A member of the RNA family "Plastid-ccsA-ndhD-2 3UTR RNA" from Grangeria borbonica, 48 nucleotides long. Rfam's curators write: Plastid ccsA-ndhD-2 is a non-coding RNA (ncRNA) recognised in plastids. The sequence is in the family's curated seed alignment. Rfam classes the family as a cis-regulatory element.
RNA sequence: UUUUGAGAAUUUUUUGAAUCAAGUAAUGUAGUGAUUCAAAAAGUUCUC
Numbered sequence: 001u002u003u004u005g006a007g008a009a010u011u012u013u014u015u016g017a018a019u020c021a022a023g024u025a026a027u028g029u030a031g032u033g034a035u036u037c038a039a040a041a042a043g044u045u046c047u048c
Base pairs, nucleotide, nucleotide: 005048006047007046008045009044010043011042012041013040014039015038016037017036018035019034020033021032
Rfam 15.1 lists 875 matches to the family in 517 species. The family's consensus secondary structure was predicted with LocARNA. On this family, see Richter et al., Plant Commun 2023: "Retrograde signaling in plants: A critical review focusing on the GUN pathway and beyond".